[Rfam]
RNA sequence: AAGGAUCUUCGGGGCGGGGUGGAAUUCCCCACCGGCGGUAUAGUCCGCGACCCGCGCUUUUGCGCGGCUGAUCCGGUGAGGCUGAAAUGCUGAUUCCGGAACCGACAGUGAGCAGGCAUGGCCUGCGCAGUCUGGAUGAGAGAAGAUGUCG
Numbered sequence: 001a002a003g004g005a006u007c008u009u010c011g012g013g014g015c016g017g018g019g020u021g022g023a024a025u026u027c028c029c030c031a032c033c034g035g036c037g038g039u040a041u042a043g044u045c046c047g048c049g050a051c052c053c054g055c056g057c058u059u060u061u062g063c064g065c066g067g068c069u070g071a072u073c074c075g076g077u078g079a080g081g082c083u084g085a086a087a088u089g090c091u092g093a094u095u096c097c098g099g100a101a102c103c104g105a106c107a108g109u110g111a112g113c114a115g116g117c118a119u120g121g122c123c124u125g126c127g128c129a130g131u132c133u134g135g136a137u138g139a140g141a142g143a144a145g146a147u148g149u150c151g
Stems, first nucleotide, its partner, number of pairs: 003149001005147006017029003033104002035048004043102002052067002072100005106134003
RNA: FMN riboswitch aptamer (RFN element)
Organism: Cuneatibacter caecimuris